[Rfam]
RNA: Potassium channel RNA editing signal
Organism: Triplophysa tibetana
RNA sequence: GUCGGUUACGGAGACAUGCACCCAGUAACCAUUGGAGGCAAAAUCGUUGGCUCUCUGUGCGCCAUCGCAGGCGUAUUGACAAUUGCGCUCCCGGUACCUGUCAUCGUUUCCAAU
Numbered sequence: 001g002u003c004g005g006u007u008a009c010g011g012a013g014a015c016a017u018g019c020a021c022c023c024a025g026u027a028a029c030c031a032u033u034g035g036a037g038g039c040a041a042a043a044u045c046g047u048u049g050g051c052u053c054u055c056u057g058u059g060c061g062c063c064a065u066c067g068c069a070g071g072c073g074u075a076u077u078g079a080c081a082a083u084u085g086c087g088c089u090c091c092c093g094g095u096a097c098c099u100g101u102c103a104u105c106g107u108u109u110c111c112a113a114u
Stems, first nucleotide, its partner, number of pairs: 001114002004111002008107004013102004018097001020095002037077002040074001049063003